The record is a 108-nucleotide RNA sequence from Rhododendron simsii, which matches "Small nucleolar RNA snoR100" in Rfam. Pairs were carried over by alignment from the consensus structure, which was predicted with WAR. It is annotated as an H/ACA-box small nucleolar RNA. Gene Ontology terms of the family: RNA processing and nucleolus. Taxonomically the source falls in Rhododendron (Eukaryota, Euphyllophyta, Mesangiospermae, Ericaceae). It scores 59 bits against the family's covariance model.
[Rfam]
RNA sequence: GAAUGGAGGAAGCUAGGUAAUUAGCACAUAAGUUGAAUGGGGUCUCUAGGCCUGUCCUCUUCAAUGCCUGCCUUCUUUGAUUUGGGGGUAUUGUUCCACCGCAUAACA
Numbered sequence: 001g002a003a004u005g006g007a008g009g010a011a012g013c014u015a016g017g018u019a020a021u022u023a024g025c026a027c028a029u030a031a032g033u034u035g036a037a038u039g040g041g042g043u044c045u046c047u048a049g050g051c052c053u054g055u056c057c058u059c060u061u062c063a064a065u066g067c068c069u070g071c072c073u074u075c076u077u078u079g080a081u082u083u084g085g086g087g088g089u090a091u092u093g094u095u096c097c098a099c100c101g102c103a104u105a106a107c108a
Stems, first nucleotide, its partner, number of pairs: 012025004040091001042089003050081001052079001054075001